[Rfam]
RNA sequence: UGCAGCUUUGUCAAAUUCAGUGCUUCCUCUCUAAUAGGUCUCACUGGCCAAAAUGGCUGCAACAGUGACUCUGUAGUUCAUGGGCCCCACAUUUCUUCAUCAUGGACUCUGGGGAUAAAUAUGUGCUACAGACAAAC
Numbered sequence: 001u002g003c004a005g006c007u008u009u010g011u012c013a014a015a016u017u018c019a020g021u022g023c024u025u026c027c028u029c030u031c032u033a034a035u036a037g038g039u040c041u042c043a044c045u046g047g048c049c050a051a052a053a054u055g056g057c058u059g060c061a062a063c064a065g066u067g068a069c070u071c072u073g074u075a076g077u078u079c080a081u082g083g084g085c086c087c088c089a090c091a092u093u094u095c096u097u098c099a100u101c102a103u104g105g106a107c108u109c110u111g112g113g114g115a116u117a118a119a120u121a122u123g124u125g126c127u128a129c130a131g132a133c134a135a136a137c
Stems, first nucleotide, its partner, number of pairs: 002060004018046005026038003073129005078123001085114005

The family of this 137-nucleotide RNA sequence from Mastacembelus armatus is "Small nucleolar RNA SNORA5".
It is annotated as an H/ACA-box small nucleolar RNA.
The family is grouped with related families in Rfam's "SNORA5 clan".
The organism belongs to Mastacembelus, within Eukaryota.
About the family: ACA5 is a member of the H/ACA class of snoRNA that guide the sites of modification of uridines to pseudouridines.